[Rfam]
RNA sequence: CUCGCAGUAUACUUUUGUGUUUUGUUUAUUUUGAAAAUCAAAUCACAGGAUUAUACUGUGAG
Number, nucleotide and partner (000 for none) at each position: 001c062002u061003c060004g059005c058006a057007g056008u055009a054010u053011a052012c000013u050014u049015u048016u047017g046018u045019g044020u000021u042022u041023u040024g039025u000026u000027u000028a000029u000030u000031u000032u000033g000034a000035a000036a000037a000038u000039c024040a023041a022042a021043u000044c019045a018046c017047a016048g015049g014050a013051u000052u011053a010054u009055a008056c007057u006058g005059u004060g003061a002062g001
RNA: mir-308 microRNA precursor family
Organism: Drosophila virilis